[Rfam]
RNA sequence: AAACAGGGCUUCUGUCGAGUGGCACACGUAAAGCAGCUUGAUUGCUCCAUGUGCAGAAUUGACAUCAAGAGAUUUCAGAAGCAUAAUUUUUUGACAUUUGGGCAGCUAGUGAUAGUUGGUCCUGGUGCCCAC
Numbered sequence: 001a002a003a004c005a006g007g008g009c010u011u012c013u014g015u016c017g018a019g020u021g022g023c024a025c026a027c028g029u030a031a032a033g034c035a036g037c038u039u040g041a042u043u044g045c046u047c048c049a050u051g052u053g054c055a056g057a058a059u060u061g062a063c064a065u066c067a068a069g070a071g072a073u074u075u076c077a078g079a080a081g082c083a084u085a086a087u088u089u090u091u092u093g094a095c096a097u098u099u100g101g102g103c104a105g106c107u108a109g110u111g112a113u114a115g116u117u118g119g120u121c122c123u124g125g126u127g128c129c130c131a132c
Stems, first nucleotide, its partner, number of pairs: 008082005013024004025053005032046005056075005100130004105126005111121003
U11 spliceosomal RNA: a 132-nucleotide RNA from Molossus molossus.
The literature on the family includes a 1988 paper in Proc Natl Acad Sci U S A by Montzka and Steitz, "Additional low-abundance human small nuclear ribonucleoproteins: U11, U12, etc".
The base pairs follow the family's consensus structure, which is taken from published work.
Rfam classes the family as a spliceosomal small nuclear RNA.
NCBI's taxonomy places the organism under Eukaryota, Chordata, Teleostomi, Eutheria, Molossus.